[Rfam]
The record is an 80-nucleotide RNA from Motacilla alba, which matches "Small nucleolar RNA SNORD111" in Rfam.
The family's RNA type in Rfam is C/D-box small nucleolar RNA.
Its family is annotated with RNA processing and nucleolus in the Gene Ontology.
Rfam 15.1 lists 894 matches to the family in 541 species.
NCBI's taxonomy places the organism under Eukaryota, Sauria, Dinosauria, Saurischia, Motacilla.

RNA sequence: UAGCCUGAAGUGAUGAGUGUGGUUCAUGUCUCUUCUCUGAGAUUUAUACUGGAGAUACGCCAAAGACUCUGAUCAGGCAG
Numbered sequence: 001u002a003g004c005c006u007g008a009a010g011u012g013a014u015g016a017g018u019g020u021g022g023u024u025c026a027u028g029u030c031u032c033u034u035c036u037c038u039g040a041g042a043u044u045u046a047u048a049c050u051g052g053a054g055a056u057a058c059g060c061c062a063a064a065g066a067c068u069c070u071g072a073u074c075a076g077g078c079a080g
Stems, first nucleotide, its partner, number of pairs: 001080001003078003